Description: The family of this 148-nucleotide RNA from Staphylococcus epidermidis is "Ribosomal protein L10 leader". Its family is annotated with regulation of gene expression in the Gene Ontology. The source organism's lineage runs through Bacteria, Bacillati, Bacilli, Staphylococcaceae and Staphylococcus epidermidis. Rfam classes the family as a cis-regulatory leader.

RNA sequence: AUACUUGUGAUUAUUUUACCUAAGACAGUAGGAGUUAUUAAUAACUUAAAACAGUAUCCUACCGAGGCUAAAAUUGACUUGAACGUGAUGAUUAAUGAUCUUUCAAGCACUUUUUGCCGUGGGUAGAAAGUGCUUUUUUUAUUGUGAU
Numbered sequence: 001a002u003a004c005u006u007g008u009g010a011u012u013a014u015u016u017u018a019c020c021u022a023a024g025a026c027a028g029u030a031g032g033a034g035u036u037a038u039u040a041a042u043a044a045c046u047u048a049a050a051a052c053a054g055u056a057u058c059c060u061a062c063c064g065a066g067g068c069u070a071a072a073a074u075u076g077a078c079u080u081g082a083a084c085g086u087g088a089u090g091a092u093u094a095a096u097g098a099u100c101u102u103u104c105a106a107g108c109a110c111u112u113u114u115u116g117c118c119g120u121g122g123g124u125a126g127a128a129a130g131u132g133c134u135u136u137u138u139u140u141a142u143u144g145u146g147a148u
Stems, first nucleotide, its partner, number of pairs: 028062006034045003107133010